mir-221 microRNA precursor family: an 82-nucleotide sequence from Myripristis murdjan. A reference for the family is Yao et al. (2008), "MicroRNA profile of Marek's disease virus-transformed T-cell line MSB-1: predominance of virus-encoded microRNAs", J Virol.

RNA sequence: UCCAGCAGUUGCUCAGUAGUCAGUGUAGAUCCUGUGGGGCCGGCAGCAGCUACAUCUGGCUACUGGGUCUCUGCCGUUCGCU
Numbered sequence: 001u002c003c004a005g006c007a008g009u010u011g012c013u014c015a016g017u018a019g020u021c022a023g024u025g026u027a028g029a030u031c032c033u034g035u036g037g038g039g040c041c042g043g044c045a046g047c048a049g050c051u052a053c054a055u056c057u058g059g060c061u062a063c064u065g066g067g068u069c070u071c072u073g074c075c076g077u078u079c080g081c082u
Stems, first nucleotide, its partner, number of pairs: 013066006020059003023055006032049004
NCBI's taxonomy places the organism under Eukaryota, Chordata, Neopterygii, Osteoglossocephalai, Myripristis. The family's consensus secondary structure was predicted with RNAalifold. Gene Ontology terms of the family: miRNA-mediated post-transcriptional gene silencing and RISC complex.